[Rfam]
RNA: c-di-AMP riboswitch aptamer (ydaO/yuaA leader)
RNA sequence: GCGUGGCCUCCGCCGAAUCCGGUGCGCCCUCGUGGCAGCCGGAGCCGGGGACCCAACCGAACGACGGGGUGAAUCGGCCCAACUGCCCGCCCGGGCAGGGGCCGUAGGGCAUGCCUUCCGGAACCGACCGCCCGAACCCGACAGCUAACUCGGUAGGCGGAGUACGGAAGGAGUA
Numbered sequence: 001g002c003g004u005g006g007c008c009u010c011c012g013c014c015g016a017a018u019c020c021g022g023u024g025c026g027c028c029c030u031c032g033u034g035g036c037a038g039c040c041g042g043a044g045c046c047g048g049g050g051a052c053c054c055a056a057c058c059g060a061a062c063g064a065c066g067g068g069g070u071g072a073a074u075c076g077g078c079c080c081a082a083c084u085g086c087c088c089g090c091c092c093g094g095g096c097a098g099g100g101g102c103c104g105u106a107g108g109g110c111a112u113g114c115c116u117u118c119c120g121g122a123a124c125c126g127a128c129c130g131c132c133c134g135a136a137c138c139c140g141a142c143a144g145c146u147a148a149c150u151c152g153g154u155a156g157g158c159g160g161a162g163u164a165c166g167g168a169a170g171g172a173g174u175a
Stems, first nucleotide, its partner, number of pairs: 011159004018043006044154006054066001067139003075104006107133004